Description:
This 152-nucleotide sequence from Blastococcus sp. CCUG 61487 belongs to the Rfam family "c-di-AMP riboswitch aptamer (ydaO/yuaA leader)". Rfam links the family to the GO terms cyclic-di-AMP binding and regulation of gene expression.
[Rfam]
RNA sequence: AGCCGGGCGCCGCCGAGUCGCCCCGCGGGGCGAGCCGGGGACCCACCGCAGUACUGGGGUGAAUCUCGACCCCGGACCUCCAGUCCGGGGCGGUAGGGCUGCUUCCCGCCCGAACCCGUCAGCUAACUCGGUAGGCGGCUCACGGAAGAACU
Numbered sequence: 001a002g003c004c005g006g007g008c009g010c011c012g013c014c015g016a017g018u019c020g021c022c023c024c025g026c027g028g029g030g031c032g033a034g035c036c037g038g039g040g041a042c043c044c045a046c047c048g049c050a051g052u053a054c055u056g057g058g059g060u061g062a063a064u065c066u067c068g069a070c071c072c073c074g075g076a077c078c079u080c081c082a083g084u085c086c087g088g089g090g091c092g093g094u095a096g097g098g099c100u101g102c103u104u105c106c107c108g109c110c111c112g113a114a115c116c117c118g119u120c121a122g123c124u125a126a127c128u129c130g131g132u133a134g135g136c137g138g139c140u141c142a143c144g145g146a147a148g149a150a151c152u
Base pairs, nucleotide, nucleotide: 011137012136013135014134018033019032020031021030022029034132035131036130037129038128039127044056045055057117058116059115065093066092096111097110098109099108
The match comes from Rfam's covariance-model search (65 bits).